[Rfam]
RNA: c-di-GMP-I riboswitch aptamer
Organism: Effusibacillus lacus
RNA sequence: UCCGGAUAAAGGCAAACCUGACUGAAAGGCAGGGGCGCAAAGCCACAGGUCUAAGGUUUCCAUACUAUGAUGGCUGGGCUGCCAAU
Numbered sequence: 001u002c003c004g005g006a007u008a009a010a011g012g013c014a015a016a017c018c019u020g021a022c023u024g025a026a027a028g029g030c031a032g033g034g035g036c037g038c039a040a041a042g043c044c045a046c047a048g049g050u051c052u053a054a055g056g057u058u059u060c061c062a063u064a065c066u067a068u069g070a071u072g073g074c075u076g077g078g079c080u081g082c083c084a085a086u
Stems, first nucleotide, its partner, number of pairs: 012038002017033004022029002041080004046076003049071003056065002